[Rfam]
The family of this 50-nucleotide RNA sequence from Paracoccus aestuarii is "Xanthine riboswitch aptamer (NMT1 RNA)".
Gene Ontology term of the family: purine nucleobase binding.
A search with the family's covariance model found it, with a score of 41 bits.
RNA sequence: GGGGCGAGUAGAAGCGGUCGGGGGUGCAGCCCUUGGACAUUGCUCGAACG
Numbered sequence: 001g002g003g004g005c006g007a008g009u010a011g012a013a014g015c016g017g018u019c020g021g022g023g024g025u026g027c028a029g030c031c032c033u034u035g036g037a038c039a040u041u042g043c044u045c046g047a048a049c050g
Base pairs, nucleotide, nucleotide: 005046006045007044008043009042010041015035018037019036021033022032023031024030